The record is a 54-nucleotide sequence, which matches "Mu-gpT-DE RNA" in Rfam.
The base pairs follow the family's consensus structure, which is taken from published work.
Nucleotides: 054
Base pairs, nucleotide, nucleotide: 002042003041004040005039007025008024009023010022011021
Number, partner (000 for none) and nucleotide at each position: 001000c002042c003041u004040u005039g006000a007025c008024a009023a010022u011021c012000a013000c014000a015000u016000g017000g018000u019000g020000u021011g022010a023009u024008u025007g026000a027000c028000u029000u030000c031000a032000g033000c034000c035000a036000a037000g038000a039005c040004a041003a042002g043000g044000a045000g046000g047000u048000u049000u050000a051000c052000a053000u054000g